[Rfam]
RNA sequence: UAACCUACAUAGUGAUGUGUAGCUGAACUAUCAGAAGUCAGCAGAGGUCAUAGUACUACGUAAAUACGCGUUAGCGUAGGAAGGAC
Numbered sequence: 001u002a003a004c005c006u007a008c009a010u011a012g013u014g015a016u017g018u019g020u021a022g023c024u025g026a027a028c029u030a031u032c033a034g035a036a037g038u039c040a041g042c043a044g045a046g047g048u049c050a051u052a053g054u055a056c057u058a059c060g061u062a063a064a065u066a067c068g069c070g071u072u073a074g075c076g077u078a079g080g081a082a083g084g085a086c
Stems, first nucleotide, its partner, number of pairs: 001025002005022007038045002047086003056079006